RNA sequence: GGUUCCAUCUUACCAAACAGCAUUAGAUGUUUAUACAAAAGUUCUAAUACUGUCAGGUAAAGAUGUCUCU
Numbered sequence: 001g002g003u004u005c006c007a008u009c010u011u012a013c014c015a016a017a018c019a020g021c022a023u024u025a026g027a028u029g030u031u032u033a034u035a036c037a038a039a040a041g042u043u044c045u046a047a048u049a050c051u052g053u054c055a056g057g058u059a060a061a062g063a064u065g066u067c068u069c070u
Stems, first nucleotide, its partner, number of pairs: 002069001006065004010060005017053004022048006

This 70-nucleotide RNA from Octopus sinensis belongs to the Rfam family "mir-8/mir-141/mir-200 microRNA precursor family". The match comes from Rfam's covariance-model search (63 bits). On this family, see Lagos-Quintana et al., RNA 2003: "New microRNAs from mouse and human". Its family is annotated with miRNA-mediated post-transcriptional gene silencing and RISC complex in the Gene Ontology. The family's consensus secondary structure was predicted with RNAalifold.